[Rfam]
RNA sequence: UAAGACGGUCCGGAUUGAUGUUUUUUUCUCCAAAAAUGUCAGGUCAUUACCUUGAAAAAUUUGAGGGAUGACCUCAUUUAAUCUCCAGUAGCAAUUUGACCUGAUAGGGGGAAAUUAUGCGUCUGGAUCGUCUUAC
Numbered sequence: 001u002a003a004g005a006c007g008g009u010c011c012g013g014a015u016u017g018a019u020g021u022u023u024u025u026u027u028c029u030c031c032a033a034a035a036a037u038g039u040c041a042g043g044u045c046a047u048u049a050c051c052u053u054g055a056a057a058a059a060u061u062u063g064a065g066g067g068a069u070g071a072c073c074u075c076a077u078u079u080a081a082u083c084u085c086c087a088g089u090a091g092c093a094a095u096u097u098g099a100c101c102u103g104a105u106a107g108g109g110g111g112a113a114a115u116u117a118u119g120c121g122u123c124u125g126g127a128u129c130g131u132c133u134u135a136c
Stems, first nucleotide, its partner, number of pairs: 002134014017116003020039002023036003027033001050066006067078004082112005089106002
RNA: Yersinia sRNA 155(RyfD)